A member of the RNA family "Plastid-psbA-1 3UTR RNA" from Lactuca sativa, 120 nucleotides long. On this family, see Richter et al., Plant Commun 2023: "Retrograde signaling in plants: A critical review focusing on the GUN pathway and beyond". The family's consensus secondary structure was predicted with LocARNA. It is annotated as a cis-regulatory element. About the family: Plastid psbA-1 is a non-coding RNA (ncRNA) present in plastids. It was identified in inverted repeat sequences in the 3 prime untranslate region (3UTR) of photosystem II quinone-binding protein (psbA).
[Rfam]
RNA sequence: UCGAACCAAACAAAAGACCUUGUUAUUUCUAAAGAAACUAUGUAAGGUAAAUACUACUAAAUAAAAAAAAGGAGCAAUAGCUUCCCUCUUGUUUUAUCAAGAGGGCGUUAUUGCUCCUUU
Numbered sequence: 001u002c003g004a005a006c007c008a009a010a011c012a013a014a015a016g017a018c019c020u021u022g023u024u025a026u027u028u029c030u031a032a033a034g035a036a037a038c039u040a041u042g043u044a045a046g047g048u049a050a051a052u053a054c055u056a057c058u059a060a061a062u063a064a065a066a067a068a069a070a071g072g073a074g075c076a077a078u079a080g081c082u083u084c085c086c087u088c089u090u091g092u093u094u095u096a097u098c099a100a101g102a103g104g105g106c107g108u109u110a111u112u113g114c115u116c117c118u119u120u
Base pairs, nucleotide, nucleotide: 068120069119070118071117072116073115074114075113076112077111078110079109080108083105084104086103087102088101089100090099